[Rfam]
RNA sequence: UCAACAUUCAUGUGUGUAGGACCCCAAAAGAUCACUAUUAAAUUUGGCACAGAUAUCUAGAAAAGUUAUCACAUUGGUGUGAGACUUGAUUUUUCUAGAGAUCUGUAUCAAAUUUAAUGGUGAUCAUUUGGGGUGCUACAUACAUGGGUGUGGG
Numbered sequence: 001u002c003a004a005c006a007u008u009c010a011u012g013u014g015u016g017u018a019g020g021a022c023c024c025c026a027a028a029a030g031a032u033c034a035c036u037a038u039u040a041a042a043u044u045u046g047g048c049a050c051a052g053a054u055a056u057c058u059a060g061a062a063a064a065g066u067u068a069u070c071a072c073a074u075u076g077g078u079g080u081g082a083g084a085c086u087u088g089a090u091u092u093u094u095c096u097a098g099a100g101a102u103c104u105g106u107a108u109c110a111a112a113u114u115u116a117a118u119g120g121u122g123a124u125c126a127u128u129u130g131g132g133g134u135g136c137u138a139c140a141u142a143c144a145u146g147g148g149u150g151u152g153g154g
Base pairs, nucleotide, nucleotide: 002153004151005150006149007148008147009146010145011144012143013142015140016139017138018137019136021134022133023132024131025130026129027128028127030125031124032123034121035120036119037118038117039116040115041114042113043112044111045110046109047108049106050105051104052103053102054101056099057098058097059096060095061094062093063092064091065090066089067088068087069082070081071080072079073078

This 154-nucleotide RNA sequence from Amborella trichopoda belongs to the Rfam family "MIR8565 microRNA precursor family". Its family is annotated with RISC complex and miRNA-mediated post-transcriptional gene silencing in the Gene Ontology. The family's consensus secondary structure was predicted with RNAalifold.